Background: Rfam assigns this 123-nucleotide RNA sequence from Marmota monax to the family "Small nucleolar RNA SNORA3/SNORA45 family". A search with the family's covariance model found it, with a score of 77 bits. The literature on the family includes a 2001 paper in EMBO J by Huttenhofer et al., "RNomics: an experimental approach that identifies 201 candidates for novel, small, non-messenger RNAs in mouse".
RNA sequence: ACUGAGACUAGAGUCACCUCCAGACAUGGCUGUUGUGUGCUCAAGUCCUGGGAGAGAAUCUGCUGCUCUUGACUCACUGGUGAGGAUAAUCAGUUUCCUUCAGUGCCCAGAGCAGACACAGCC
Number, nucleotide and partner (000 for none) at each position: 001a000002c052003u051004g000005a049006g048007a046008c045009u044010a000011g000012a041013g040014u000015c039016a038017c037018c000019u000020c000021c000022a000023g034024a033025c032026a031027u000028g000029g000030c000031u026032g025033u024034u023035g000036u000037g017038u016039g015040c013041u012042c000043a000044a009045g008046u007047c000048c006049u005050g000051g003052g002053a000054g000055a000056g000057a000058a000059u000060c000061u000062g000063c115064u114065g113066c112067u111068c110069u109070u000071g107072a000073c000074u000075c105076a104077c103078u102079g101080g100081u000082g000083a000084g098085g097086a096087u000088a000089a000090u000091c000092a000093g000094u000095u000096u086097c085098c084099u000100u080101c079102a078103g077104u076105g075106c000107c071108c000109a069110g068111a067112g066113c065114a064115g063116a000117c000118a000119c000120a000121g000122c000123c000

Description:
Its Rfam clan is "SNORA3 clan". Rfam classes the family as an H/ACA-box small nucleolar RNA.